[Rfam]
RNA sequence: AGGCAAGAGUACUGGAGUGGGUUGCCAUUGCCUAGGGCAGACUAAACAUUUGCUACACUGAGACCAUAUUUGUGUCUCUAGACCUAGUUCUCUCCUUAGUUCUGGUUUUAUAAAUGCUGGUAGUAAAU
Numbered sequence: 001a002g003g004c005a006a007g008a009g010u011a012c013u014g015g016a017g018u019g020g021g022u023u024g025c026c027a028u029u030g031c032c033u034a035g036g037g038c039a040g041a042c043u044a045a046a047c048a049u050u051u052g053c054u055a056c057a058c059u060g061a062g063a064c065c066a067u068a069u070u071u072g073u074g075u076c077u078c079u080a081g082a083c084c085u086a087g088u089u090c091u092c093u094c095c096u097u098a099g100u101u102c103u104g105g106u107u108u109u110a111u112a113a114a115u116g117c118u119g120g121u122a123g124u125a126a127a128u
Base pairs, nucleotide, nucleotide: 001051012040013039014038018034019033020032021031022030063121064120065119066118069116078105079104080103081102082101084099085098086097087096
The record is a 128-nucleotide RNA from Moschus moschiferus, which matches "Small nucleolar RNA SNORA72" in Rfam. Pairs were carried over by alignment from the consensus structure, which was predicted with PFOLD. Rfam links the family to the GO terms nucleolus and RNA processing. A reference for the family is Ganot et al. (1997), "The family of box ACA small nucleolar RNAs is defined by an evolutionarily conserved secondary structure and ubiquitous sequence elements essential for RNA accumulation", Genes Dev. A search with the family's covariance model found it, with a score of 73 bits. From the family's description: U72 is a member of the H/ACA class of snoRNAs. The snoRNA gene is located in intron 4 of the ribosomal L30 protein gene in human, mouse and chicken. The family's RNA type in Rfam is H/ACA-box small nucleolar RNA.